[Rfam]
RNA: Small nucleolar RNA U49
RNA sequence: UGCCGAUGAGGAAGAAAUCCCCAGAGUAUAGGAAGUGCCGUAUGACACUCUUAAAACGCAGCGUUUCG
Numbered sequence: 001u002g003c004c005g006a007u008g009a010g011g012a013a014g015a016a017a018u019c020c021c022c023a024g025a026g027u028a029u030a031g032g033a034a035g036u037g038c039c040g041u042a043u044g045a046c047a048c049u050c051u052u053a054a055a056a057c058g059c060a061g062c063g064u065u066u067c068g
Stems, first nucleotide, its partner, number of pairs: 014062001032052002034049004